[Rfam]
RNA sequence: UGUUACGAGUGCCAGCGCUCAGCCCCGGCUUGUUGGCCGGCAACCCUCCUCGCGACGGGGUGCCCCGGGUGAAGACACGACCGCACAACGGCUGUGCGGUAACCGCGGCUU
Numbered sequence: 001u002g003u004u005a006c007g008a009g010u011g012c013c014a015g016c017g018c019u020c021a022g023c024c025c026c027g028g029c030u031u032g033u034u035g036g037c038c039g040g041c042a043a044c045c046c047u048c049c050u051c052g053c054g055a056c057g058g059g060g061u062g063c064c065c066c067g068g069g070u071g072a073a074g075a076c077a078c079g080a081c082c083g084c085a086c087a088a089c090g091g092c093u094g095u096g097c098g099g100u101a102a103c104c105g106c107g108g109c110u111u
Base pairs, nucleotide, nucleotide: 001077002076003075004074009038011037012036013035014034015033016032021030022029039064040063041062044060045059046058049054080100081099082098083097084096085095086094087093
This 111-nucleotide RNA sequence from Paractinoplanes tereljensis belongs to the Rfam family "SAM (S-adenosyl methionine) riboswitch aptamer".
The organism belongs to Paractinoplanes, within Bacteria.